This 96-nucleotide sequence from Corynebacterium imitans belongs to the Rfam family "TPP riboswitch aptamer (THI element)". It scores 62 bits against the family's covariance model. The organism belongs to Corynebacterium, within Bacteria. The family's consensus secondary structure is taken from published work.
[Rfam]
RNA sequence: CAGUGUGACACGGGGUGCACCCAACGUGGUGCUGAGAUCAAACCCGUCGAACCUGCUCUAGCUCGACCUAGCGAAGGGAUGUCCCACAUGAAUACA
Dot-bracket structure: ......((((((((.((((((......))))).......)..)))).....(((...((((......))))...)))..)))).............
Numbered sequence: 001c002a003g004u005g006u007g008a009c010a011c012g013g014g015g016u017g018c019a020c021c022c023a024a025c026g027u028g029g030u031g032c033u034g035a036g037a038u039c040a041a042a043c044c045c046g047u048c049g050a051a052c053c054u055g056c057u058c059u060a061g062c063u064c065g066a067c068c069u070a071g072c073g074a075a076g077g078g079a080u081g082u083c084c085c086a087c088a089u090g091a092a093u094a095c096a
Stems, first nucleotide, its partner, number of pairs: 007083004011046004016040001017032005052077003058071004